[Rfam]
RNA sequence: UGUUCCCAGCCACACCGGGCAGGAUGGCGCCCGGUGAUGGCGUCGCGUCCAAUCGGUGUGGCGAGAG
Numbered sequence: 001u002g003u004u005c006c007c008a009g010c011c012a013c014a015c016c017g018g019g020c021a022g023g024a025u026g027g028c029g030c031c032c033g034g035u036g037a038u039g040g041c042g043u044c045g046c047g048u049c050c051a052a053u054c055g056g057u058g059u060g061g062c063g064a065g066a067g
Base pairs, nucleotide, nucleotide: 009062010061011060012059013058015056016055022050023049024048025047026046028042029041030040031039
Rfam assigns this 67-nucleotide RNA from Trypanosoma congolense to the family "Trypanosomatid snoRNA TB10Cs3H2". The organism belongs to Trypanosoma congolense, within Eukaryota. Gene Ontology terms of the family: RNA processing and nucleolus. Rfam 15.1 lists 47 matches to the family in 15 species.